[Rfam]
The record is a 300-nucleotide RNA sequence from Betacoronavirus rousetti, which matches "Betacoronavirus 5'UTR" in Rfam. It is annotated as a cis-regulatory element. On this family, see Goebel et al., J Virol 2004: "The 3' cis-acting genomic replication element of the severe acute respiratory syndrome coronavirus can function in the murine coronavirus genome". Its family is annotated with viral RNA genome replication in the Gene Ontology. Its Rfam clan is "Coronavirus 5' UTR". The source organism's lineage runs through Viruses, Pisuviricota, Pisoniviricetes, Cornidovirineae and Betacoronavirus rousetti. From the family's description: The first 150 to 200 nucleotides within the 5' UTR of betacoronaviruses are highly structured and shown to be conserved on a structure level among betacoronaviruses.

RNA sequence: GAUAAAAGGUAGUAGCUGCGUGCUAUCGCCGAUCCUAACCCCCGUUUCGUCUUGUACGAAUCACUCUUGAACGAACUUAAAAUUGCAUCAUACGUCACGGUAGGUUUCGUCUUGCUGUGCGUACGUUGCACACCAAUUAUAGUGGAGCUUUUUGGUUAAGUACUUCCCCCUUGCGAGCAACAGGUGUCGUCCUGUUUGUUAGCCCUGCGCGGUUUCGUCCGUGUAGUGAUGGAGGGUGUGCCUGACCCACCUAAGCUUAAAAGUAUGGUGGUUACCACUUUGAAGUGGUGCGAUCCUUUU
Number, nucleotide and partner (000 for none) at each position: 001g000002a000003u000004a000005a000006a000007a000008g030009g029010u028011a000012g026013u025014a024015g023016c022017u000018g000019c000020g000021u000022g016023c015024u014025a013026u012027c000028g010029c009030c008031g000032a000033u000034c000035c000036u000037a000038a000039c000040c000041c000042c000043c000044g000045u000046u060047u059048c058049g057050u056051c000052u000053u000054g000055u000056a050057c049058g048059a047060a046061u000062c000063a000064c000065u000066c000067u000068u000069g000070a000071a000072c000073g000074a000075a000076c000077u000078u000079a000080a000081a000082a000083u000084u000085g129086c128087a127088u000089c000090a000091u123092a122093c121094g000095u000096c000097a118098c117099g116100g115101u114102a113103g112104g111105u000106u000107u000108c000109g000110u000111c104112u103113u102114g101115c100116u099117g098118u097119g000120c000121g093122u092123a091124c000125g000126u000127u087128g086129c085130a000131c000132a000133c000134c000135a000136a000137u000138u000139a000140u000141a000142g000143u000144g000145g000146a000147g000148c000149u000150u000151u000152u000153u000154g168155g167156u000157u000158a000159a000160g000161u000162a000163c000164u000165u000166c000167c155168c154169c000170c000171u000172u000173g000174c000175g000176a000177g000178c000179a000180a195181c194182a193183g192184g191185u000186g000187u000188c000189g000190u000191c184192c183193u182194g181195u180196u000197u000198g000199u000200u000201a000202g000203c000204c000205c226206u225207g224208c223209g222210c221211g220212g219213u000214u000215u000216c000217g000218u000219c212220c211221g210222u209223g208224u207225a206226g205227u000228g000229a000230u000231g000232g000233a000234g000235g000236g000237u000238g000239u000240g000241c000242c000243u000244g000245a000246c000247c000248c000249a000250c000251c000252u000253a000254a000255g000256c000257u000258u000259a000260a000261a000262a000263g000264u000265a000266u000267g000268g000269u000270g000271g000272u000273u000274a000275c000276c000277a000278c000279u000280u000281u000282g000283a000284a000285g000286u000287g000288g000289u000290g000291c000292g000293a000294u000295c000296c000297u000298u000299u000300u000